[Rfam]
RNA: FMN riboswitch aptamer (RFN element)
RNA sequence: GAUUUCCUUCGGGGUCGGGUGAAAUUCCCAAUCGGCGGUAAAUAAAAGUGCAAUGCUUUUAUAAGCCCGCGAGCCAAUGGCAGGAUCUGGUGUGAUUCCAGAGCCGACAGUUAAAGUCUGGAUGGGAGAAGGGUCAA
Numbered sequence: 001g002a003u004u005u006c007c008u009u010c011g012g013g014g015u016c017g018g019g020u021g022a023a024a025u026u027c028c029c030a031a032u033c034g035g036c037g038g039u040a041a042a043u044a045a046a047a048g049u050g051c052a053a054u055g056c057u058u059u060u061a062u063a064a065g066c067c068c069g070c071g072a073g074c075c076a077a078u079g080g081c082a083g084g085a086u087c088u089g090g091u092g093u094g095a096u097u098c099c100a101g102a103g104c105c106g107a108c109a110g111u112u113a114a115a116g117u118c119u120g121g122a123u124g125g126g127a128g129a130a131g132g133g134u135c136a137a
Stems, first nucleotide, its partner, number of pairs: 005133006017029003031117002033106002035070004065104002075080001086102005108120003